[Rfam]
RNA sequence: UCUUCAUCUCACGUGCUCUCUCACCGGUCAUAGAGGUGAGAGAGCGUGCGGAAUGAAGAGA
Numbered sequence: 001u002c003u004u005c006a007u008c009u010c011a012c013g014u015g016c017u018c019u020c021u022c023a024c025c026g027g028u029c030a031u032a033g034a035g036g037u038g039a040g041a042g043a044g045c046g047u048g049c050g051g052a053a054u055g056a057a058g059a060g061a
Stems, first nucleotide, its partner, number of pairs: 001059007010050001012048006019041004
The record is a 61-nucleotide RNA sequence from Pristionchus pacificus, which matches "mir-8364 microRNA precursor family" in Rfam.
The base pairs follow the family's consensus structure, which was predicted with RNAalifold.
It scores 76 bits against the family's covariance model.
Lineage of the source: Eukaryota > Opisthokonta > Metazoa > Rhabditida > Pristionchus.